Description
Vault RNA: a 99-nucleotide RNA from Cavia porcellus. The family's consensus secondary structure is taken from published work. It scores 77 bits against the family's covariance model.

RNA sequence: GGGCUGGCUUUAGCCCAGCGGUUCCUUCGAGUCUGGCUUCCCAACUGUCCGGGCCGAUUAGUCCGGGUUCAAGACCCGCGGGCGCUUUCCAGUCCUUUU
Numbered sequence: 001g002g003g004c005u006g007g008c009u010u011u012a013g014c015c016c017a018g019c020g021g022u023u024c025c026u027u028c029g030a031g032u033c034u035g036g037c038u039u040c041c042c043a044a045c046u047g048u049c050c051g052g053g054c055c056g057a058u059u060a061g062u063c064c065g066g067g068u069u070c071a072a073g074a075c076c077c078g079c080g081g082g083c084g085c086u087u088u089c090c091a092g093u094c095c096u097u098u099u
Stems, first nucleotide, its partner, number of pairs: 002094006013083004018079004026073002029070002